This 107-nucleotide sequence from Pectobacterium atrosepticum belongs to the Rfam family "Yersinia sRNA 224". Rfam 15.1 lists 130 matches to the family in 13 species. The base pairs follow the family's consensus structure. It scores 71 bits against the family's covariance model. For this family Rfam cites "Temperature-responsive in vitro RNA structurome of Yersinia pseudotuberculosis" (Righetti et al., Proc Natl Acad Sci U S A, 2016).

RNA sequence: UCGUAUUGCUACAAGGGUUGUCGAGCGGUAGUAACGGAUAGAUCGUAAAGACGCUGUAAACACAUCCCUGUGCGCUCGGCUUGCGCCAUCCCUGGCGCAAACGCUUU
Numbered sequence: 001u002c003g004u005a006u007u008g009c010u011a012c013a014a015g016g017g018u019u020g021u022c023g024a025g026c027g028g029u030a031g032u033a034a035c036g037g038a039u040a041g042a043u044c045g046u047a048a049a050g051a052c053g054c055u056g057u058a059a060a061c062a063c064a065u066c067c068c069u070g071u072g073c074g075c076u077c078g079g080c081u082u083g084c085g086c087c088a089u090c091c092c093u094g095g096c097g098c099a100a101a102c103g104c105u106u107u
Base pairs, nucleotide, nucleotide: 013106014105015104017102019027020026021025030076031075041066042065043064045063046062051057052056081100082099083098084097085096086095087094088093
Rfam classes the family as a small RNA.